Shown here is a 140-nucleotide RNA sequence from Oryzias javanicus, a member of the family "Small nucleolar RNA SNORD10". It is annotated as a C/D-box small nucleolar RNA. The match comes from Rfam's covariance-model search (93 bits). The literature on the family includes a 2001 paper in EMBO J by Huttenhofer et al., "RNomics: an experimental approach that identifies 201 candidates for novel, small, non-messenger RNAs in mouse".
RNA sequence: UGUAUGCUGAUGAAACCCAUGCGUGUCAACUGACUCUGUCCGCCUCUGCUGUGGCGUUGCUCUGGUCGGCGUUUUGCUGGCUGAAGUUUUCGCCACAUCGGGGACCCAGAGACAUGAUCACACUCAUGAUCCUGAAUACA
Numbered sequence: 001u002g003u004a005u006g007c008u009g010a011u012g013a014a015a016c017c018c019a020u021g022c023g024u025g026u027c028a029a030c031u032g033a034c035u036c037u038g039u040c041c042g043c044c045u046c047u048g049c050u051g052u053g054g055c056g057u058u059g060c061u062c063u064g065g066u067c068g069g070c071g072u073u074u075u076g077c078u079g080g081c082u083g084a085a086g087u088u089u090u091c092g093c094c095a096c097a098u099c100g101g102g103g104a105c106c107c108a109g110a111g112a113c114a115u116g117a118u119c120a121c122a123c124u125c126a127u128g129a130u131c132c133u134g135a136a137u138a139c140a
Stems, first nucleotide, its partner, number of pairs: 001140004044103005050097003